Metazoan signal recognition particle RNA: a 296-nucleotide sequence from Chiloscyllium punctatum. Taxonomically the source falls in Chiloscyllium (Eukaryota, Deuterostomia, Craniata, Elasmobranchii). It is annotated as a non-coding RNA gene. The signal recognition particle (SRP) is a universally conserved ribonucleoprotein. It is involved in the co-translational targeting of proteins to membranes. The eukaryotic SRP consists of a 300-nucleotide 7S RNA and six proteins: SRPs 72, 68, 54, 19, 14, and 9. The family's consensus secondary structure is taken from published work.
RNA sequence: ACUGAGGAAGGGCGCACGCCUGUAAUCCCGCUGCUGGGAGGCUUAGGCUGCCGGAUGACUUGAGGUUGGGAGUUCUGGGCUGUUGUGGUCUGUGUCGAUCGGGUGCCCACACUCAGGGCAGUGUCCACAUGGUGCUCCUCGGGGAACUCGGGUGUACCAGGUGUGCUGCAGAGGGGUUAACCGGCCCAGGUCGGGAACGGAGCAGGUCAAAGCCCCCGCACUGCUCGGUAGUGGGAUAGCACCUGUGAAUGGAUGCAGCAGUGCAGCCUAACCAAUACAGUGAGACGCAGUCUUGA
Numbered sequence: 001a002c003u004g005a006g007g008a009a010g011g012g013c014g015c016a017c018g019c020c021u022g023u024a025a026u027c028c029c030g031c032u033g034c035u036g037g038g039a040g041g042c043u044u045a046g047g048c049u050g051c052c053g054g055a056u057g058a059c060u061u062g063a064g065g066u067u068g069g070g071a072g073u074u075c076u077g078g079g080c081u082g083u084u085g086u087g088g089u090c091u092g093u094g095u096c097g098a099u100c101g102g103g104u105g106c107c108c109a110c111a112c113u114c115a116g117g118g119c120a121g122u123g124u125c126c127a128c129a130u131g132g133u134g135c136u137c138c139u140c141g142g143g144g145a146a147c148u149c150g151g152g153u154g155u156a157c158c159a160g161g162u163g164u165g166c167u168g169c170a171g172a173g174g175g176g177u178u179a180a181c182c183g184g185c186c187c188a189g190g191u192c193g194g195g196a197a198c199g200g201a202g203c204a205g206g207u208c209a210a211a212g213c214c215c216c217c218g219c220a221c222u223g224c225u226c227g228g229u230a231g232u233g234g235g236a237u238a239g240c241a242c243c244u245g246u247g248a249a250u251g252g253a254u255g256c257a258g259c260a261g262u263g264c265a266g267c268c269u270a271a272c273c274a275a276u277a278c279a280g281u282g283a284g285a286c287g288c289a290g291u292c293u294u295g296a
Stems, first nucleotide, its partner, number of pairs: 003018002006015001026039003045293007056283001058281003064273007075266003079262009089253005095247001100245007107235002110233004116226009126163003130159006137152003141148002173216006183208004191200003